[Rfam]
RNA sequence: UCUGGAUAAACUUGUAUCCAUCCAAGAGAAUGGAGCAAGUCACUUUACAGAAUUAUAAUAAGUAACACAUUUCAGGAUUGCCAAAGACUUACAUACAAGUGAAAUCUUGAAAUGCUAGGAUAACCGUAUGUCCUUUAACAUAUUUUAUGUUAUAAAAAUAAUCUUGAAUAACUUUAGUUAAGUUUUUAAGUUACGGUGAG
Numbered sequence: 001u002c003u004g005g006a007u008a009a010a011c012u013u014g015u016a017u018c019c020a021u022c023c024a025a026g027a028g029a030a031u032g033g034a035g036c037a038a039g040u041c042a043c044u045u046u047a048c049a050g051a052a053u054u055a056u057a058a059u060a061a062g063u064a065a066c067a068c069a070u071u072u073c074a075g076g077a078u079u080g081c082c083a084a085a086g087a088c089u090u091a092c093a094u095a096c097a098a099g100u101g102a103a104a105u106c107u108u109g110a111a112a113u114g115c116u117a118g119g120a121u122a123a124c125c126g127u128a129u130g131u132c133c134u135u136u137a138a139c140a141u142a143u144u145u146u147a148u149g150u151u152a153u154a155a156a157a158a159u160a161a162u163c164u165u166g167a168a169u170a171a172c173u174u175u176a177g178u179u180a181a182g183u184u185u186u187u188a189a190g191u192u193a194c195g196g197u198g199a200g
Stems, first nucleotide, its partner, number of pairs: 001051004006046001008044001010040006017034005022028001068114004073109007087100002090097001117134005123197006129158001136152005163190006170183001

This 200-nucleotide sequence belongs to the Rfam family "IS605-orfB-I RNA". It is annotated as a small RNA. The base pairs follow the family's consensus structure, which is taken from published work.